[Rfam]
RNA sequence: UUGAGGCGCAGAGCUUAGCUAAUUGGUGAGCAUUAAAUAUACUGUUCACAGUGGCUAAGUUCAGCGUCUGCA
Numbered sequence: 001u002u003g004a005g006g007c008g009c010a011g012a013g014c015u016u017a018g019c020u021a022a023u024u025g026g027u028g029a030g031c032a033u034u035a036a037a038u039a040u041a042c043u044g045u046u047c048a049c050a051g052u053g054g055c056u057a058a059g060u061u062c063a064g065c066g067u068c069u070g071c072a
Stems, first nucleotide, its partner, number of pairs: 011062010026049007